RNA sequence: UGUGUCCUGCCAGUGGUUUUACCCUAUGGUAGGUUACGUCAUGCUGUUCUACCACAGGGUAGAACCACGGACAGGAUAC
Numbered sequence: 001u002g003u004g005u006c007c008u009g010c011c012a013g014u015g016g017u018u019u020u021a022c023c024c025u026a027u028g029g030u031a032g033g034u035u036a037c038g039u040c041a042u043g044c045u046g047u048u049c050u051a052c053c054a055c056a057g058g059g060u061a062g063a064a065c066c067a068c069g070g071a072c073a074g075g076a077u078a079c
Stems, first nucleotide, its partner, number of pairs: 010070002013068013027054007036047003
The family of this 79-nucleotide RNA from Macaca mulatta is "mir-140 microRNA precursor family". Its family is annotated with miRNA-mediated post-transcriptional gene silencing and RISC complex in the Gene Ontology. It is one of the family's seed sequences. The family has 32 seed sequences and 648 matches in Rfam 15.1. Taxonomically the source falls in Macaca (Eukaryota, Craniata, Primates, Cercopithecoidea).